[Rfam]
Nucleotides: 074
Base pairs, nucleotide, nucleotide: 001065002064003063004062
Number, partner (000 for none) and nucleotide at each position: 001065g002064a003063g004062a005000a006000a007000u008000g009000a010000g011000g012000a013000u014000a015000c016000a017000c018000a019000u020000u021000u022000u023000g024000u025000c026000u027000u028000a029000c030000u031000u032000c033000u034000g035000u036000a037000g038000u039000g040000a041000a042000g043000a044000c045000u046000u047000c048000a049000g050000a051000u052000c053000c054000a055000a056000c057000u058000c059000u060000g061000a062004u063003c064002u065001c066000a067000c068000a069000c070000u071000g072000g073000a074000g